The record is a 381-nucleotide RNA from Rhodoblastus sp., which matches "Bacterial RNase P class A" in Rfam. Rfam's curators write: Ribonuclease P (RNase P) is a ubiquitous endoribonuclease, found in archaea, bacteria and eukarya as well as chloroplasts and mitochondria. It is annotated as a ribozyme. Rfam links the family to the GO terms ribonuclease P activity, dimeric ribonuclease P complex and tRNA processing. The family's consensus secondary structure is taken from published work.
RNA sequence: CCAGUCGGCCGGGCGGCCGCUCCCUCGCGGGAGAGGAAAGUCCGGGCUCCACGGAGACACGGCGCCGGAUAACGUCCGGCGGGGGCGACCCAGGGAAAGCGCCACAGAAAGCAAACCGCCCGGCGCGCGAGCGUCCGGGUCAGGGUGAAAGGGUGCGGUAAGAGCGCACCGCACGUCCAGCAAUGGGCGUGGCAUGGCAAGCCGCCGGGAGCAAGACCGAAUAGGGACGGCAGGGGCGAAAGCCCCGGAUCCUGUCUCCGGAUCGCCGUCCGGGUUGGUCGCUAGAGGCGUCGCGCAAGCGUCGUCCCAGAGGAAUGGCCGCCACGUUUCGGGGGCGACCCCGAGGCCAUACAGAACCCGGCUUACAGGCCGACUGGACCU
Numbered sequence: 001c002c003a004g005u006c007g008g009c010c011g012g013g014c015g016g017c018c019g020c021u022c023c024c025u026c027g028c029g030g031g032a033g034a035g036g037a038a039a040g041u042c043c044g045g046g047c048u049c050c051a052c053g054g055a056g057a058c059a060c061g062g063c064g065c066c067g068g069a070u071a072a073c074g075u076c077c078g079g080c081g082g083g084g085g086c087g088a089c090c091c092a093g094g095g096a097a098a099g100c101g102c103c104a105c106a107g108a109a110a111g112c113a114a115a116c117c118g119c120c121c122g123g124c125g126c127g128c129g130a131g132c133g134u135c136c137g138g139g140u141c142a143g144g145g146u147g148a149a150a151g152g153g154u155g156c157g158g159u160a161a162g163a164g165c166g167c168a169c170c171g172c173a174c175g176u177c178c179a180g181c182a183a184u185g186g187g188c189g190u191g192g193c194a195u196g197g198c199a200a201g202c203c204g205c206c207g208g209g210a211g212c213a214a215g216a217c218c219g220a221a222u223a224g225g226g227a228c229g230g231c232a233g234g235g236g237c238g239a240a241a242g243c244c245c246c247g248g249a250u251c252c253u254g255u256c257u258c259c260g261g262a263u264c265g266c267c268g269u270c271c272g273g274g275u276u277g278g279u280c281g282c283u284a285g286a287g288g289c290g291u292c293g294c295g296c297a298a299g300c301g302u303c304g305u306c307c308c309a310g311a312g313g314a315a316u317g318g319c320c321g322c323c324a325c326g327u328u329u330c331g332g333g334g335g336c337g338a339c340c341c342c343g344a345g346g347c348c349a350u351a352c353a354g355a356a357c358c359c360g361g362c363u364u365a366c367a368g369g370c371c372g373a374c375u376g377g378a379c380c381u
Stems, first nucleotide, its partner, number of pairs: 001377010011366001012323007020033005038364003042361005047211004056257001060207005065079005080094001082091003099202002101198003116144002118140005123134004152170006171193001172191008215280004225271006249263004287306004292301003